[Rfam]
RNA sequence: UGAUGAGGCAUCUCCGGAAUCUCUGCACCGCCGUGAUGACUCCUUCAAUCCCUGGGUCUCUGAUGGCAGCGGCUGUUUGUC
Numbered sequence: 001u002g003a004u005g006a007g008g009c010a011u012c013u014c015c016g017g018a019a020u021c022u023c024u025g026c027a028c029c030g031c032c033g034u035g036a037u038g039a040c041u042c043c044u045u046c047a048a049u050c051c052c053u054g055g056g057u058c059u060c061u062g063a064u065g066g067c068a069g070c071g072g073c074u075g076u077u078u079g080u081c
Stems, first nucleotide, its partner, number of pairs: 002081005

A member of the RNA family "Small nucleolar RNA MBII-202" from Pitta sordida, 81 nucleotides long. For this family Rfam cites "RNomics: an experimental approach that identifies 201 candidates for novel, small, non-messenger RNAs in mouse" (Huttenhofer et al., EMBO J, 2001). Rfam 15.1 lists 745 matches to the family in 452 species. Rfam classes the family as a C/D-box small nucleolar RNA. Rfam links the family to the GO terms nucleolus and RNA processing.